[Rfam]
RNA: Y RNA
Organism: Propithecus coquereli
RNA sequence: GGCUGGUCGAAUGGUAGUGGGUUAUCAGAACUUAUUAACAUUAGUGUCACUAAAGUCGGUUUUCAACCCCCCACUGCUAAAUUUGACUGGCUUAAA
Numbered sequence: 001g002g003c004u005g006g007u008c009g010a011a012u013g014g015u016a017g018u019g020g021g022u023u024a025u026c027a028g029a030a031c032u033u034a035u036u037a038a039c040a041u042u043a044g045u046g047u048c049a050c051u052a053a054a055g056u057c058g059g060u061u062u063u064c065a066a067c068c069c070c071c072c073a074c075u076g077c078u079a080a081a082u083u084u085g086a087c088u089g090g091c092u093u094a095a096a
Stems, first nucleotide, its partner, number of pairs: 001092008010084002015079001016075006029061003034056001